[Rfam]
A member of the RNA family "TPP riboswitch aptamer (THI element)" from Hydrogenophaga crocea, 114 nucleotides long. The source organism's lineage runs through Bacteria, Pseudomonadati, Burkholderiales, Comamonadaceae and Hydrogenophaga. It scores 59 bits against the family's covariance model. The base pairs follow the family's consensus structure, which is taken from published work. Its family is annotated with thiamine pyrophosphate binding in the Gene Ontology.
RNA sequence: CGCGCUGCUCCGGGGUGCACCGGCCUGCAAAGGCCCGCGCUGAGAUGGCUGUGAAGCCGAACCCGUGAACUUGAUCCGGCUAGUACCGGCGAAAGAAGAGCGCAUGCCCACACC
Numbered sequence: 001c002g003c004g005c006u007g008c009u010c011c012g013g014g015g016u017g018c019a020c021c022g023g024c025c026u027g028c029a030a031a032g033g034c035c036c037g038c039g040c041u042g043a044g045a046u047g048g049c050u051g052u053g054a055a056g057c058c059g060a061a062c063c064c065g066u067g068a069a070c071u072u073g074a075u076c077c078g079g080c081u082a083g084u085a086c087c088g089g090c091g092a093a094a095g096a097a098g099a100g101c102g103c104a105u106g107c108c109c110a111c112a113c114c
Stems, first nucleotide, its partner, number of pairs: 006102005011065004016059001017040002020037001047058004070095003076089004